[Rfam]
RNA sequence: UGUAUUCCUUAUCUGUUAUCUAUUUCUAAUGGUUGUUUUGGAGCCUAUCUUCUGGUCAUACCUUUUGACGUUUUGCCAGUCAUGACCGGAAGAUAGGCCCUGCUAUAUGUUGCCGCUAAAACUCUUGAA
Numbered sequence: 001u002g003u004a005u006u007c008c009u010u011a012u013c014u015g016u017u018a019u020c021u022a023u024u025u026c027u028a029a030u031g032g033u034u035g036u037u038u039u040g041g042a043g044c045c046u047a048u049c050u051u052c053u054g055g056u057c058a059u060a061c062c063u064u065u066u067g068a069c070g071u072u073u074u075g076c077c078a079g080u081c082a083u084g085a086c087c088g089g090a091a092g093a094u095a096g097g098c099c100c101u102g103c104u105a106u107a108u109g110u111u112g113c114c115g116c117u118a119a120a121a122c123u124c125u126u127g128a129a
Base pairs, nucleotide, nucleotide: 002113003112004111025105026102040101041100043098044097045096046095047094048093049092052089053088054087055086056085058083059082062079